[Rfam]
RNA sequence: GUGAGAGGAUGGGUCUUUGCGGGCAAGGUGAGUAGUAUAAUGUCUCUCAACUGGCCUACAAAGUCCCAGUUUCUGGC
Numbered sequence: 001g002u003g004a005g006a007g008g009a010u011g012g013g014u015c016u017u018u019g020c021g022g023g024c025a026a027g028g029u030g031a032g033u034a035g036u037a038u039a040a041u042g043u044c045u046c047u048c049a050a051c052u053g054g055c056c057u058a059c060a061a062a063g064u065c066c067c068a069g070u071u072u073c074u075g076g077c
Stems, first nucleotide, its partner, number of pairs: 004074005010068004015063005021057004026052002029049002
Shown here is a 77-nucleotide RNA sequence from Esox lucius, a member of the family "mir-193 microRNA precursor family".
The source organism's lineage runs through Eukaryota, Vertebrata, Gnathostomata, Euteleostomi and Esox.
The match comes from Rfam's covariance-model search (67 bits).
Its family is annotated with RISC complex and miRNA-mediated post-transcriptional gene silencing in the Gene Ontology.